[Rfam]
RNA: L31-Actinobacteria ribosomal protein leader
Organism: Cnephaeus nilssonii
RNA sequence: AUGGCUCUGGUUCCCCCUGCCCGUGGGCCGGGGAGGGACCCAGAGGCC
Numbered sequence: 001a002u003g004g005c006u007c008u009g010g011u012u013c014c015c016c017c018u019g020c021c022c023g024u025g026g027g028c029c030g031g032g033g034a035g036g037g038a039c040c041c042a043g044a045g046g047c048c
Stems, first nucleotide, its partner, number of pairs: 003048003007043004015037004020032004